Description: Small nucleolar RNA snoR97: a 95-nucleotide sequence from Brassica napus. The organism belongs to Brassica, within Eukaryota. Rfam 15.1 lists 862 matches to the family in 223 species. A search with the family's covariance model found it, with a score of 42 bits. For this family Rfam cites "Experimental RNomics: identification of 140 candidates for small non-messenger RNAs in the plant Arabidopsis thaliana" (Marker et al., Curr Biol, 2002). Rfam links the family to the GO terms nucleolus and RNA processing.

RNA sequence: AUAACAUAAAAUGUAUAGAAAAAAUUAUUGUGUUAACAUCAGCUUUGUCUUUCGUUUCGUCCUUGAGAUUUGAGUCAAACUAAAACACUACACUA
Numbered sequence: 001a002u003a004a005c006a007u008a009a010a011a012u013g014u015a016u017a018g019a020a021a022a023a024a025u026u027a028u029u030g031u032g033u034u035a036a037c038a039u040c041a042g043c044u045u046u047g048u049c050u051u052u053c054g055u056u057u058c059g060u061c062c063u064u065g066a067g068a069u070u071u072g073a074g075u076c077a078a079a080c081u082a083a084a085a086c087a088c089u090a091c092a093c094u095a
Stems, first nucleotide, its partner, number of pairs: 030088005042075004048068004